[Rfam]
RNA: RAGATH-18 RNA
RNA sequence: CUUGUGGACUGUUCUACCAAAUGGGAGUAGUCUUUAUAUCUCGAUACAAAAACAAAACCAGACAGGAUGAAGCAAGAA
Number, nucleotide and partner (000 for none) at each position: 001c076002u075003u074004g073005u072006g000007g000008a000009c065010u064011g063012u062013u061014c000015u000016a000017c000018c000019a000020a000021a000022u060023g059024g058025g000026a000027g000028u000029a000030g053031u052032c000033u049034u048035u000036a000037u000038a000039u000040c000041u000042c000043g000044a000045u000046a000047c000048a034049a033050a000051a000052a031053c030054a000055a000056a000057a000058c024059c023060a022061g013062a012063c011064a010065g009066g000067a000068u000069g000070a000071a000072g005073c004074a003075a002076g001077a000078a000